[Rfam]
RNA: Leucine operon leader
RNA sequence: CUGGGGCAUGAUUCAUGAUUCGCAGCAUUCGUUUCACCGGUCUACUACUACUAAACGCAUCCACUGUGCGCGGUAGACUGGCGGGCGAAAUUCAGCGUUGAAUCGUCUUCAGUAAAACUAAAAACCCGCGCCACUGCGCGGGUUUUUUU
Dot-bracket structure: ...(.(.(((.((((((........(.((((((..............(((((...((((.......)))).)))))...)))))).)........)).)))).))).).)..........(((((((((((....)))))))))))...